[Rfam]
Rfam assigns this 184-nucleotide RNA from Oryza rufipogon to the family "MIR812 microRNA precursor family". The family's consensus secondary structure was predicted with RNAalifold. Rfam links the family to the GO terms RISC complex and miRNA-mediated post-transcriptional gene silencing.
RNA sequence: UCCGUGUCUAACUUUGACUGUCCAUCUGGACUAUCCGUUUUAUAUGAAAUUUUUUUAUAAUUCGUAUUUUCAUCGUUGUUAGAUGAUAAAAUAUAAUUAAUAUUUUAUGCGUAACUUGUCUGUUUAAUUUUUUUUCAUAUUUUUUUAAAAUAAGACGGACGGUUAAACACUGAGCACGGAAAUC
Dot-bracket structure: ....................(.(((.(.((((.((((((((((..........................................................................................................)))))))))).)))).)..).)).)..........
Numbered sequence: 001u002c003c004g005u006g007u008c009u010a011a012c013u014u015u016g017a018c019u020g021u022c023c024a025u026c027u028g029g030a031c032u033a034u035c036c037g038u039u040u041u042a043u044a045u046g047a048a049a050u051u052u053u054u055u056u057a058u059a060a061u062u063c064g065u066a067u068u069u070u071c072a073u074c075g076u077u078g079u080u081a082g083a084u085g086a087u088a089a090a091a092u093a094u095a096a097u098u099a100a101u102a103u104u105u106u107a108u109g110c111g112u113a114a115c116u117u118g119u120c121u122g123u124u125u126a127a128u129u130u131u132u133u134u135u136c137a138u139a140u141u142u143u144u145u146u147a148a149a150a151u152a153a154g155a156c157g158g159a160c161g162g163u164u165a166a167a168c169a170c171u172g173a174g175c176a177c178g179g180a181a182a183u184c
Stems, first nucleotide, its partner, number of pairs: 021174001023172002025169001027166001029164004034159010